[Rfam]
RNA sequence: GCUGAGCUCGGUAACGUGGGCUUGUCACCAAGUGGAGCAUUAAGGUAUUUGAAUAAUUUGGUAUUGAAUUCAAGGUUGACAUUAUGAGCUAGCUUUGAUUUGCCCGUUUCCAAGUUGGGCAGUGGAUUCUAUGUUUCAGUCUAACGCUCGAAUCAUAUUCUCCCUAAACUUGAGGGUAAUGCGUGAGGCUGGUUUCACAGAGCAGCGAUUAUCUCUAACUCUCAACGGUGGAAGGAUUACGAGUCAUUUUCUCAUAUUGUCAAUUACCCUUGGAAUCCACCAAAUUCAACAAAUAUUUUU
Numbered sequence: 001g002c003u004g005a006g007c008u009c010g011g012u013a014a015c016g017u018g019g020g021c022u023u024g025u026c027a028c029c030a031a032g033u034g035g036a037g038c039a040u041u042a043a044g045g046u047a048u049u050u051g052a053a054u055a056a057u058u059u060g061g062u063a064u065u066g067a068a069u070u071c072a073a074g075g076u077u078g079a080c081a082u083u084a085u086g087a088g089c090u091a092g093c094u095u096u097g098a099u100u101u102g103c104c105c106g107u108u109u110c111c112a113a114g115u116u117g118g119g120c121a122g123u124g125g126a127u128u129c130u131a132u133g134u135u136u137c138a139g140u141c142u143a144a145c146g147c148u149c150g151a152a153u154c155a156u157a158u159u160c161u162c163c164c165u166a167a168a169c170u171u172g173a174g175g176g177u178a179a180u181g182c183g184u185g186a187g188g189c190u191g192g193u194u195u196c197a198c199a200g201a202g203c204a205g206c207g208a209u210u211a212u213c214u215c216u217a218a219c220u221c222u223c224a225a226c227g228g229u230g231g232a233a234g235g236a237u238u239a240c241g242a243g244u245c246a247u248u249u250u251c252u253c254a255u256a257u258u259g260u261c262a263a264u265u266a267c268c269c270u271u272g273g274a275a276u277c278c279a280c281c282a283a284a285u286u287c288a289a290c291a292a293a294u295a296u297u298u299u300u
Base pairs, nucleotide, nucleotide: 001038002037003036004023005022006021007020008019009018010017028035029034042299043298044297045296046295047294048293049292050291051290055286057284058283059282060281061280062279068276069275070274071273073271074270075269077262078261079260080259081258083256084255086253087252088251091248096246097245098244099243100242101241102240104235105234108233109232110231111230112229114226115225116224117223118222119221121220122219123218124163125162126161130157131156132155133154135152136151137150139148141146170217172215173214174213175212182207183206184205189200190199191198
Dot-bracket structure: ((((((((((......)))))))....((....)))))...((((((((((...(.((((((.....((((.(((.(((((.((.(((..(....(((((((.((..(((((.((((((.((((((...((((.(((.(.(....).).))).))))...)))......(.((((......(((....(((......)))....)))....)))).))))))))))..)))))))....))))))).)..))).)).)))))......))).))))..)))))).)...)))))))))).
Shown here is a 300-nucleotide sequence from Zostera marina, a member of the family "Plant signal recognition particle RNA". The family is grouped with related families in Rfam's "SRP clan". A reference for the family is Batey et al. (2000), "Crystal structure of the ribonucleoprotein core of the signal recognition particle", Science. The base pairs follow the family's consensus structure, which is taken from published work.